[Rfam]
RNA sequence: UGUUGUCUUCAGGGCAAGGUGAAAUUCCUGACCGGCGGUAAAUCAGUCCGCGAGCUUUUUAGCAGAAUCCACAAGGAUACCGAUAGUAUAGUCUAGAUGAAAGAAGACAGAC
Numbered sequence: 001u002g003u004u005g006u007c008u009u010c011a012g013g014g015c016a017a018g019g020u021g022a023a024a025u026u027c028c029u030g031a032c033c034g035g036c037g038g039u040a041a042a043u044c045a046g047u048c049c050g051c052g053a054g055c056u057u058u059u060u061a062g063c064a065g066a067a068u069c070c071a072c073a074a075g076g077a078u079a080c081c082g083a084u085a086g087u088a089u090a091g092u093c094u095a096g097a098u099g100a101a102a103g104a105a106g107a108c109a110g111a112c
Stems, first nucleotide, its partner, number of pairs: 003110008017029003031092002033082002035051004046080002054063003067078004084095003

Shown here is a 112-nucleotide RNA from Lactobacillus iners, a member of the family "FMN riboswitch aptamer (RFN element)". The match comes from Rfam's covariance-model search (96 bits). The base pairs follow the family's consensus structure, which is taken from published work. Lineage of the source: Bacteria > Bacillati > Bacillota > Lactobacillus > Lactobacillus iners.